[Rfam]
RNA: THF (Tetrahydrofolate) riboswitch aptamer
Organism: Ruminococcaceae bacterium AM28-23LB
RNA sequence: GACAGAGUAGGCGGAUAUGGGUCAAGUGCUGAAGGGACGGGGAGUUGCCCUUUGGACGAAAAGCCGUUUUGGCUUGCCGUAGAUUCGCCGCAUCCCGCUGUC
Numbered sequence: 001g002a003c004a005g006a007g008u009a010g011g012c013g014g015a016u017a018u019g020g021g022u023c024a025a026g027u028g029c030u031g032a033a034g035g036g037a038c039g040g041g042g043a044g045u046u047g048c049c050c051u052u053u054g055g056a057c058g059a060a061a062a063g064c065c066g067u068u069u070u071g072g073c074u075u076g077c078c079g080u081a082g083a084u085u086c087g088c089c090g091c092a093u094c095c096c097g098c099u100g101u102c
Stems, first nucleotide, its partner, number of pairs: 001102005010089007018081002020078003026057002029055008040095003044091001061075004